[Rfam]
RNA sequence: GCGCCACUAGCUCAAUGGAUAGAGCAUCUGACUACGGAUCAGAAGGUUAGGGGUUCGAGUCCCUUGUGGCGCA
Number, nucleotide and partner (000 for none) at each position: 001g072002c071003g070004c069005c068006a067007c066008u000009a000010g025011c024012u023013c022014a000015a000016u000017g000018g000019a000020u000021a000022g013023a012024g011025c010026a000027u043028c042029u041030g040031a039032c000033u000034a000035c000036g000037g000038a000039u031040c030041a029042g028043a027044a000045g000046g000047u000048u000049a065050g064051g063052g062053g061054u000055u000056c000057g000058a000059g000060u000061c053062c052063c051064u050065u049066g007067u006068g005069g004070c003071g002072c001073a000
The record is a 73-nucleotide RNA from Microbacterium ginsengiterrae, which matches "tRNA" in Rfam. The family's consensus secondary structure is taken from published work. It scores 68 bits against the family's covariance model. Rfam links the family to the GO term triplet codon-amino acid adaptor activity. NCBI's taxonomy places the organism under Bacteria, Bacillati, Actinomycetes, Micrococcales, Microbacterium.